[Rfam]
RNA: Actinobacteria sRNA Ms_IGR-5
RNA sequence: ACACCGAAAGGAGGUGAUCCGGAAGAUGUAUUCAGUCCGGACAAGUGAGGUGGCUGCGGGCUAACGCUCGCCGUCGUACUCUCCGCAGUACUCGGCCGGGUCGAAGGCCGAAAUCCCAAGCAGUCACCGACCCGCGGGCUCGCCGGUAAGUCCGGCCGGCUCCUCCUCGGAGGAACCAGAGCCCGCGGGUUUCUGCGU
Numbered sequence: 001a002c003a004c005c006g007a008a009a010g011g012a013g014g015u016g017a018u019c020c021g022g023a024a025g026a027u028g029u030a031u032u033c034a035g036u037c038c039g040g041a042c043a044a045g046u047g048a049g050g051u052g053g054c055u056g057c058g059g060g061c062u063a064a065c066g067c068u069c070g071c072c073g074u075c076g077u078a079c080u081c082u083c084c085g086c087a088g089u090a091c092u093c094g095g096c097c098g099g100g101u102c103g104a105a106g107g108c109c110g111a112a113a114u115c116c117c118a119a120g121c122a123g124u125c126a127c128c129g130a131c132c133c134g135c136g137g138g139c140u141c142g143c144c145g146g147u148a149a150g151u152c153c154g155g156c157c158g159g160c161u162c163c164u165c166c167u168c169g170g171a172g173g174a175a176c177c178a179g180a181g182c183c184c185g186c187g188g189g190u191u192u193c194u195g196c197g198u
Base pairs, nucleotide, nucleotide: 014057015056016055018053059109060108061107062106065103066101067100068099069098072095129191130190131189132188133187134186135185136184137183138182139181140180142160143159144158145157146156147155